[Rfam]
RNA sequence: UCUGAGAGCAGGUAAGCCACUGACUAACGCACAUUGCGCCUGUUUUCCACUCCACUGUGCGUGUGACAGCGGCUAACCAGCUUUUGGAUGAGUGGCUG
Numbered sequence: 001u002c003u004g005a006g007a008g009c010a011g012g013u014a015a016g017c018c019a020c021u022g023a024c025u026a027a028c029g030c031a032c033a034u035u036g037c038g039c040c041u042g043u044u045u046u047c048c049a050c051u052c053c054a055c056u057g058u059g060c061g062u063g064u065g066a067c068a069g070c071g072g073c074u075a076a077c078c079a080g081c082u083u084u085u086g087g088a089u090g091a092g093u094g095g096c097u098g
Stems, first nucleotide, its partner, number of pairs: 005084005011078002015074004020069003024065001025063002028061006035054002
RNA: mir-210 microRNA precursor family